Shown here is a 106-nucleotide RNA from Synechococcus sp. JA-2-3B'a(2-13), a member of the family "Fluoride riboswitch aptamer (crcB RNA motif)".
Its family is annotated with positive regulation of gene expression and response to fluoride in the Gene Ontology.
It is one of the family's seed sequences.

RNA sequence: CCGGCAACCGGCGAUGGAGUUCGCCGCAACCGCCUCACUUGGAAUUUUUCUAUAGAGGAAGAGGGUUCUAACCUCAAAAGCUGAGGCUGAUGACUCCUACACUUCU
Dot-bracket structure: .........[[[[..((((((]]]]......((((((............................................))))))....)))))).........